Rfam assigns this 132-nucleotide RNA from Phyllostomus discolor to the family "Small nucleolar RNA SNORA42/SNORA80 family". The source organism's lineage runs through Eukaryota, Eumetazoa, Craniata, Yangochiroptera and Phyllostomus. Gene Ontology terms of the family: nucleolus and RNA processing. A reference for the family is Schattner et al. (2006), "A computational screen for mammalian pseudouridylation guide H/ACA RNAs", RNA. The family has 21 seed sequences and 1,535 matches in Rfam 15.1. About the family: The members of this family belong to the H/ACA class of snoRNAs that guide the sites of modification of uridines to pseudouridines. Human ACA42 (SNORA42) was cloned from HeLa cells by immunoprecipitation with anti-GAR1 antibody. Its is predicted to guide the pseudouridylation of residues U109 and U572 of 18S rRNA. ACA42 shares the same host gene with ACA26, ACA46, ACA50. Pairs were carried over by alignment from the consensus structure, which was predicted with RNAalifold.
RNA sequence: GCAUGGGCUUGGGUUUAUGGCAGGCCUGUCCCCCUGGGUCUCUCAUAGUGCCCUGUGCCAGAACACCCUGGCCUGGAACCAUUGCCCAGCCUCUGCCUGUGGGCUGCAGACACUGAAAUGGGCUGCACAGUG
Numbered sequence: 001g002c003a004u005g006g007g008c009u010u011g012g013g014u015u016u017a018u019g020g021c022a023g024g025c026c027u028g029u030c031c032c033c034c035u036g037g038g039u040c041u042c043u044c045a046u047a048g049u050g051c052c053c054u055g056u057g058c059c060a061g062a063a064c065a066c067c068c069u070g071g072c073c074u075g076g077a078a079c080c081a082u083u084g085c086c087c088a089g090c091c092u093c094u095g096c097c098u099g100u101g102g103g104c105u106g107c108a109g110a111c112a113c114u115g116a117a118a119u120g121g122g123c124u125g126c127a128c129a130g131u132g
Base pairs, nucleotide, nucleotide: 001058002057003056004055005053006052007051008050015048016047017046018045019044020043022041023040024039025037026036069125070124071123072122073121074120080115081114086109087106088105089104090103091102092101